[Rfam]
RNA sequence: UUUAGAACUCUAGAUAAAGGCUAAAAACCGAAACAGAGUCUGGGCUGUACUAAACUUUUGGACAUAUUCGAACUUCUCCGUUUUUUUUAGAUUUUUUAUUUUAAAAUGGCGAACUGGAUUUUUGACUCUUCAUAAAAGUUUUAGGCCUACAUCUUAGCUUUCGAAC
Numbered sequence: 001u002u003u004a005g006a007a008c009u010c011u012a013g014a015u016a017a018a019g020g021c022u023a024a025a026a027a028c029c030g031a032a033a034c035a036g037a038g039u040c041u042g043g044g045c046u047g048u049a050c051u052a053a054a055c056u057u058u059u060g061g062a063c064a065u066a067u068u069c070g071a072a073c074u075u076c077u078c079c080g081u082u083u084u085u086u087u088u089a090g091a092u093u094u095u096u097u098a099u100u101u102u103a104a105a106a107u108g109g110c111g112a113a114c115u116g117g118a119u120u121u122u123u124g125a126c127u128c129u130u131c132a133u134a135a136a137a138g139u140u141u142u143a144g145g146c147c148u149a150c151a152u153c154u155u156a157g158c159u160u161u162c163g164a165a166c
Stems, first nucleotide, its partner, number of pairs: 002165002005162003008157002012154004018148003021144005027139002036133001038131001042129003046125001060121003067113004073109002080102001084098001
The record is a 166-nucleotide sequence from Morella rubra, which matches "MIR2912 microRNA precursor family" in Rfam. A search with the family's covariance model found it, with a score of 59 bits. Gene Ontology terms of the family: RISC complex and miRNA-mediated post-transcriptional gene silencing. The source organism's lineage runs through Eukaryota, Magnoliopsida, eudicotyledons, Gunneridae and Morella.